RNA sequence: ACAAUGAUACUCCUGCAUAGUCGAGGUUGAGUCCCAGAGUGCAGCCCGGAGGUUCUCGGGGAGGUGGAAUUCCUGUGA
Numbered sequence: 001a002c003a004a005u006g007a008u009a010c011u012c013c014u015g016c017a018u019a020g021u022c023g024a025g026g027u028u029g030a031g032u033c034c035c036a037g038a039g040u041g042c043a044g045c046c047c048g049g050a051g052g053u054u055c056u057c058g059g060g061g062a063g064g065u066g067g068a069a070u071u072c073c074u075g076u077g078a
Stems, first nucleotide, its partner, number of pairs: 012075001013044006045061003049057003062074003

pemK RNA: a 78-nucleotide sequence from Thermanaerosceptrum fracticalcis. NCBI's taxonomy places the organism under Bacteria, Bacillota, Eubacteriales, Peptococcaceae, Thermanaerosceptrum. Rfam classes the family as a cis-regulatory element.